Rfam assigns this 141-nucleotide RNA from Paenibacillus rigui to the family "c-di-AMP riboswitch aptamer (ydaO/yuaA leader)".
From the family's description: This family represents a conserved RNA structure found upstream of the ydaO and yuaA genes in Bacillus subtilis and related genes in other bacteria.
It scores 86 bits against the family's covariance model.
Rfam 15.1 lists 7,607 matches to the family in 2,262 species.
The literature on the family includes a 2004 paper in Proc Natl Acad Sci U S A by Barrick et al., "New RNA motifs suggest an expanded scope for riboswitches in bacterial genetic control".
The source organism's lineage runs through Bacteria, Bacillati, Bacillota, Paenibacillaceae and Paenibacillus.
[Rfam]
RNA sequence: ACUUGUAAAAUGCCGAAUCGAACAACCUUUUGUUUGUACGGGGGACUUAUUUUUGGGGUGAAUGUUUGGUUUCUACAAACUAGGGAGAUACCUCUUCCCGAAUCCGUCAACUAACCUCGGAGGCCUAAGGAGGGAGAAUAA
Numbered sequence: 001a002c003u004u005g006u007a008a009a010a011u012g013c014c015g016a017a018u019c020g021a022a023c024a025a026c027c028u029u030u031u032g033u034u035u036g037u038a039c040g041g042g043g044g045a046c047u048u049a050u051u052u053u054u055g056g057g058g059u060g061a062a063u064g065u066u067u068g069g070u071u072u073c074u075a076c077a078a079a080c081u082a083g084g085g086a087g088a089u090a091c092c093u094c095u096u097c098c099c100g101a102a103u104c105c106g107u108c109a110a111c112u113a114a115c116c117u118c119g120g121a122g123g124c125c126u127a128a129g130g131a132g133g134g135a136g137a138a139u140a141a
Stems, first nucleotide, its partner, number of pairs: 012124003019036006039119005048055002056105003064080004083099004